The record is a 134-nucleotide RNA sequence from Ursus maritimus, which matches "Small nucleolar RNA SNORA38" in Rfam. By type it is an H/ACA-box small nucleolar RNA. About the family: ACA38 is a member of the H/ACA class of snoRNA that guide the sites of modification of uridines to pseudouridines. The match comes from Rfam's covariance-model search (103 bits). The base pairs follow the family's consensus structure, which was predicted with RNAfold. The organism belongs to Ursus, within Eukaryota.

RNA sequence: CCCUCAAACAAAGCCAUGUCUGCGUGGUCUUCUGUCUUUGGACAUGUAAGAAUCGGAGGCAAAGAAACACUGACCUGGAGAAGUCUGGGGCCAGCCUUCUCCCUGCAGGCUCAAGAUCAACCACCCAGAUAGAA
Numbered sequence: 001c002c003c004u005c006a007a008a009c010a011a012a013g014c015c016a017u018g019u020c021u022g023c024g025u026g027g028u029c030u031u032c033u034g035u036c037u038u039u040g041g042a043c044a045u046g047u048a049a050g051a052a053u054c055g056g057a058g059g060c061a062a063a064g065a066a067a068c069a070c071u072g073a074c075c076u077g078g079a080g081a082a083g084u085c086u087g088g089g090g091c092c093a094g095c096c097u098u099c100u101c102c103c104u105g106c107a108g109g110c111u112c113a114a115g116a117u118c119a120a121c122c123a124c125c126c127a128g129a130u131a132g133a134a
Stems, first nucleotide, its partner, number of pairs: 002059004015046007026032002071127002093111005099105001